This 151-nucleotide RNA sequence from Maritalea myrionectae belongs to the Rfam family "FMN riboswitch aptamer (RFN element)". NCBI's taxonomy places the organism under Bacteria, Pseudomonadota, Alphaproteobacteria, Devosiaceae, Maritalea.

[Rfam]
RNA sequence: AAACCUUCUCAGGGCGGGGCGAAAUUCCCCACCGGCGGUAAAUGGGGCAACCCAUAAGCCCGCGAGCGCCUUUUGGUCCCGCCAAAAGGGUCAAGCAGAUCUGGUGCAAUUCCAGAGCCGACGGUCAAAGUCCGGAUGGAAGAGAAGGGGU
Numbered sequence: 001a002a003a004c005c006u007u008c009u010c011a012g013g014g015c016g017g018g019g020c021g022a023a024a025u026u027c028c029c030c031a032c033c034g035g036c037g038g039u040a041a042a043u044g045g046g047g048c049a050a051c052c053c054a055u056a057a058g059c060c061c062g063c064g065a066g067c068g069c070c071u072u073u074u075g076g077u078c079c080c081g082c083c084a085a086a087a088g089g090g091u092c093a094a095g096c097a098g099a100u101c102u103g104g105u106g107c108a109a110u111u112c113c114a115g116a117g118c119c120g121a122c123g124g125u126c127a128a129a130g131u132c133c134g135g136a137u138g139g140a141a142g143a144g145a146a147g148g149g150g151u
Stems, first nucleotide, its partner, number of pairs: 004148007017029003031131002033120002035063004058118002066096002100116005122134003